The record is a 98-nucleotide RNA sequence from Lachnellula cervina, which matches "tRNA" in Rfam. The family's consensus secondary structure is taken from published work. The organism belongs to Lachnellula, within Eukaryota. About the family: Transfer RNA (tRNA) molecules are approximately 80 nucleotides in length.
[Rfam]
RNA sequence: UCCGUAAUGGUGUAAUGGUUAGCAUUUCUGCCUCUCAUAAGAAGCUCAAGCUUCAAACAAGGUCGCAGGAGAUCAGGGUUCAAUUCCCUGUUACGGAA
Numbered sequence: 001u002c003c004g005u006a007a008u009g010g011u012g013u014a015a016u017g018g019u020u021a022g023c024a025u026u027u028c029u030g031c032c033u034c035u036c037a038u039a040a041g042a043a044g045c046u047c048a049a050g051c052u053u054c055a056a057a058c059a060a061g062g063u064c065g066c067a068g069g070a071g072a073u074c075a076g077g078g079u080u081c082a083a084u085u086c087c088c089u090g091u092u093a094c095g096g097a098a
Base pairs, nucleotide, nucleotide: 001097002096003095004094005093006092007091010025011024012023013022027069028068029067030066031065074090075089076088077087078086